[Rfam]
RNA sequence: CCACAUAAGGUGCCGGGGUUAUUAAAACUCUGAGUCCUCUAAAAAUCAGAGUUUUAUCGCCCCGGCUCUUUAUGGG
Numbered sequence: 001c002c003a004c005a006u007a008a009g010g011u012g013c014c015g016g017g018g019u020u021a022u023u024a025a026a027a028c029u030c031u032g033a034g035u036c037c038u039c040u041a042a043a044a045a046u047c048a049g050a051g052u053u054u055u056a057u058c059g060c061c062c063c064g065g066c067u068c069u070u071u072a073u074g075g076g
Stems, first nucleotide, its partner, number of pairs: 001076002004074004009069002012066006019059001021057002024055010035043001
mir-4872 microRNA precursor family: a 76-nucleotide RNA from Branchiostoma lanceolatum. Taxonomically the source falls in Branchiostoma (Eukaryota, Bilateria, Cephalochordata, Leptocardii). The family's consensus secondary structure was predicted with RNAalifold.